RNA sequence: GGUAAUAAGACCGUUAUACGGGGAAAUUUAUGGACUCGGGUGCGAAUCCCGACGCCUCCACCAUCUUUUAAAUUCGUUAAUAUGGGGGCGAAUAGGCUCGACAUGGAUUGGAAACUUUAUAACUUUACUCGCAAGGUAUGCGUAAUCCACAACUUUUAAAUGGCAAUAAACUUGUUUCAUUAAAAGCUGGUCUUUCUAA
Numbered sequence: 001g002g003u004a005a006u007a008a009g010a011c012c013g014u015u016a017u018a019c020g021g022g023g024a025a026a027u028u029u030a031u032g033g034a035c036u037c038g039g040g041u042g043c044g045a046a047u048c049c050c051g052a053c054g055c056c057u058c059c060a061c062c063a064u065c066u067u068u069u070a071a072a073u074u075c076g077u078u079a080a081u082a083u084g085g086g087g088g089c090g091a092a093u094a095g096g097c098u099c100g101a102c103a104u105g106g107a108u109u110g111g112a113a114a115c116u117u118u119a120u121a122a123c124u125u126u127a128c129u130c131g132c133a134a135g136g137u138a139u140g141c142g143u144a145a146u147c148c149a150c151a152a153c154u155u156u157u158a159a160a161u162g163g164c165a166a167u168a169a170a171c172u173u174g175u176u177u178c179a180u181u182a183a184a185a186g187c188u189g190g191u192c193u194u195u196c197u198a199a
Stems, first nucleotide, its partner, number of pairs: 001129005014119001016117001026108003030104003036052005053090007130142004
RNA: permuted transfer-messenger RNA